Rfam assigns this 98-nucleotide RNA from Bradyrhizobium sp. LTSP885 to the family "Rhizobiales-2 RNA". The organism belongs to Bradyrhizobium, within Bacteria. It is annotated as a small RNA.

[Rfam]
RNA sequence: CAGGUGACAUCUUAAGGCUGCGGAUACUGCGUACGGCGCGGGGCCUCAUCCACCCCGUGUCGCACACCGACCCGCCCGGUCGUCCCCCCGGGCGGGUC
Numbered sequence: 001c002a003g004g005u006g007a008c009a010u011c012u013u014a015a016g017g018c019u020g021c022g023g024a025u026a027c028u029g030c031g032u033a034c035g036g037c038g039c040g041g042g043g044c045c046u047c048a049u050c051c052a053c054c055c056c057g058u059g060u061c062g063c064a065c066a067c068c069g070a071c072c073c074g075c076c077c078g079g080u081c082g083u084c085c086c087c088c089c090g091g092g093c094g095g096g097u098c
Stems, first nucleotide, its partner, number of pairs: 001020003028066002031063002035061005069098011